RNA sequence: UGUCUCCUCCAACUCUUCAAAAGAAUUGGAUUUUGCCCGCCUCCCAGCGGGCAUUUUUUU
Numbered sequence: 001u002g003u004c005u006c007c008u009c010c011a012a013c014u015c016u017u018c019a020a021a022a023g024a025a026u027u028g029g030a031u032u033u034u035g036c037c038c039g040c041c042u043c044c045c046a047g048c049g050g051g052c053a054u055u056u057u058u059u060u
Stems, first nucleotide, its partner, number of pairs: 008030005014024002034053007
A member of the RNA family "Betaproteobacteria toxic small RNA" from Pseudoduganella ginsengisoli, 60 nucleotides long. The literature on the family includes a 2012 paper in Genome Res by Kimelman et al., "A vast collection of microbial genes that are toxic to bacteria". NCBI's taxonomy places the organism under Bacteria, Pseudomonadati, Betaproteobacteria, Oxalobacteraceae, Pseudoduganella. The family has 51 seed sequences and 951 matches in Rfam 15.1. Overexpression in amino aid rich medium attenuates growth, suggesting role in repressing amino acid intake and metabolism.